[Rfam]
RNA sequence: ACUGCGGAGUAUAAGUUUAUUGUAAGUAGUAUACUAUUUAGUUGCGAAAGCGUAUACAAUGAAACAGUAA
Dot-bracket structure: ((((....(((((.......(((.....(((..((....)).)))....)))))))).......))))..
RNA: RAGATH-18 RNA